[Rfam]
RNA sequence: AUGGUCUGGGGAGAGCCUCCUGUGUUGUUGAACCUGCCCAGUUGUGGGUGCACAGCCUUGUACCAGGUAGCCCAACUCUACCAUGAAGUAAGUUUCUAGAAGUCUUUCCUGGGAUUUGAAUUUGCAGUGAGAGGUAUGAGCAUUCUAGCAGCAGUUUGAUGAUCAUGUAGGAUACUGCAAACAGGA
Numbered sequence: 001a002u003g004g005u006c007u008g009g010g011g012a013g014a015g016c017c018u019c020c021u022g023u024g025u026u027g028u029u030g031a032a033c034c035u036g037c038c039c040a041g042u043u044g045u046g047g048g049u050g051c052a053c054a055g056c057c058u059u060g061u062a063c064c065a066g067g068u069a070g071c072c073c074a075a076c077u078c079u080a081c082c083a084u085g086a087a088g089u090a091a092g093u094u095u096c097u098a099g100a101a102g103u104c105u106u107u108c109c110u111g112g113g114a115u116u117u118g119a120a121u122u123u124g125c126a127g128u129g130a131g132a133g134g135u136a137u138g139a140g141c142a143u144u145c146u147a148g149c150a151g152c153a154g155u156u157u158g159a160u161g162a163u164c165a166u167g168u169a170g171g172a173u174a175c176u177g178c179a180a181a182c183a184g185g186a
Stems, first nucleotide, its partner, number of pairs: 002083004008078003015072001017070002019067004024063002027056004032049003095113003099108003121181009137165003141161004147156003